[Rfam]
RNA sequence: AUACUUACCUGGCAGGGGAGAUCACAAAGGUGGUUUUCCCAGGGUGAGGCUUAUGCAUUGCACUCUGGAUGUGUUGACCCCUGCGUUUUCCCCAAAUGGAGAAAACCCAACUGCAGAGUUUGUGAUAGUGGGGGACUACACUGGAGCUUUCCCCUG
Numbered sequence: 001a002u003a004c005u006u007a008c009c010u011g012g013c014a015g016g017g018g019a020g021a022u023c024a025c026a027a028a029g030g031u032g033g034u035u036u037u038c039c040c041a042g043g044g045u046g047a048g049g050c051u052u053a054u055g056c057a058u059u060g061c062a063c064u065c066u067g068g069a070u071g072u073g074u075u076g077a078c079c080c081c082u083g084c085g086u087u088u089u090c091c092c093c094a095a096a097u098g099g100a101g102a103a104a105a106c107c108c109a110a111c112u113g114c115a116g117a118g119u120u121u122g123u124g125a126u127a128g129u130g131g132g133g134g135a136c137u138a139c140a141c142u143g144g145a146g147c148u149u150u151c152c153c154c155u156g
Stems, first nucleotide, its partner, number of pairs: 012114004016040006041082004046078001048075003052071003056067001085108001087105001088103002091099002130155006139146001
Rfam assigns this 156-nucleotide sequence from Saimiri boliviensis to the family "U1 spliceosomal RNA".
About the family: U1 is a small nuclear RNA (snRNA) component of the spliceosome (involved in pre-mRNA splicing).
The source organism's lineage runs through Eukaryota, Teleostomi, Dipnotetrapodomorpha, Euarchontoglires and Saimiri boliviensis.
The base pairs follow the family's consensus structure, which is taken from published work.